[Rfam]
RNA sequence: AACGUGUUCCGGGGUCGGUGAAAGUCCGAACCGGCGGUUAUAGUCCGCGACCCCCGCGGCCUUCGGGCCAACGGGCUGACUCGGUGAAAUUCCGAGACCGACAGUCAGAGUCUGGAUGGGAGGAACACGCG
Numbered sequence: 001a002a003c004g005u006g007u008u009c010c011g012g013g014g015u016c017g018g019u020g021a022a023a024g025u026c027c028g029a030a031c032c033g034g035c036g037g038u039u040a041u042a043g044u045c046c047g048c049g050a051c052c053c054c055c056g057c058g059g060c061c062u063u064c065g066g067g068c069c070a071a072c073g074g075g076c077u078g079a080c081u082c083g084g085u086g087a088a089a090u091u092c093c094g095a096g097a098c099c100g101a102c103a104g105u106c107a108g109a110g111u112c113u114g115g116a117u118g119g120g121a122g123g124a125a126c127a128c129g130c131g
Stems, first nucleotide, its partner, number of pairs: 003129008016028003030111002032100002034048004043098002052075002080096005102114003

The record is a 131-nucleotide RNA from Tessaracoccus flavus, which matches "FMN riboswitch aptamer (RFN element)" in Rfam. The base pairs follow the family's consensus structure, which is taken from published work.